Overview
The record is a 154-nucleotide sequence from Amborella trichopoda, which matches "MIR8565 microRNA precursor family" in Rfam. Pairs were carried over by alignment from the consensus structure, which was predicted with RNAalifold. It scores 142 bits against the family's covariance model. NCBI's taxonomy places the organism under Eukaryota, Tracheophyta, Euphyllophyta, Amborellales, Amborella.
[Rfam]
RNA sequence: UCCAUAUCCAUGUGUGUAGGAUCCUAAAAAAUCACCAUUAAAUUUGGUACAGAUCUCUAGAAAAAUUAUCUCAUGGGUGUGAGACUUGACUUUUCUAGAGAUCUGUGCCAAAUUUAAUGAUGAUCAUUUGGAGUCCUACACACAUGGGUGUGGG
Numbered sequence: 001u002c003c004a005u006a007u008c009c010a011u012g013u014g015u016g017u018a019g020g021a022u023c024c025u026a027a028a029a030a031a032u033c034a035c036c037a038u039u040a041a042a043u044u045u046g047g048u049a050c051a052g053a054u055c056u057c058u059a060g061a062a063a064a065a066u067u068a069u070c071u072c073a074u075g076g077g078u079g080u081g082a083g084a085c086u087u088g089a090c091u092u093u094u095c096u097a098g099a100g101a102u103c104u105g106u107g108c109c110a111a112a113u114u115u116a117a118u119g120a121u122g123a124u125c126a127u128u129u130g131g132a133g134u135c136c137u138a139c140a141c142a143c144a145u146g147g148g149u150g151u152g153g154g
Stems, first nucleotide, its partner, number of pairs: 002153012015140008024131005031124002034121001036119029066089003069082002072079002
Dot-bracket structure: .((((((((((((.((((((((.(((((..((.(.(((((((((((((((((((((((((((((.(((((.((....)).))....))).))))))))))))))))))))))))))))).).))..))))).)))))))).)))))))))))).